[Rfam]
RNA sequence: AAGAGCUGGUGCCACCCCUGCUGAGAAGUGGGCUCGGAAAGCUACAGGUCCUAAUAUUUUUUGUACAAGAAUACGGAUGGCUGGGUUACAUAU
Numbered sequence: 001a002a003g004a005g006c007u008g009g010u011g012c013c014a015c016c017c018c019u020g021c022u023g024a025g026a027a028g029u030g031g032g033c034u035c036g037g038a039a040a041g042c043u044a045c046a047g048g049u050c051c052u053a054a055u056a057u058u059u060u061u062u063g064u065a066c067a068a069g070a071a072u073a074c075g076g077a078u079g080g081c082u083g084g085g086u087u088a089c090a091u092a093u
Stems, first nucleotide, its partner, number of pairs: 012037002017032006040087004045083003048078003056072006
RNA: c-di-GMP-I riboswitch aptamer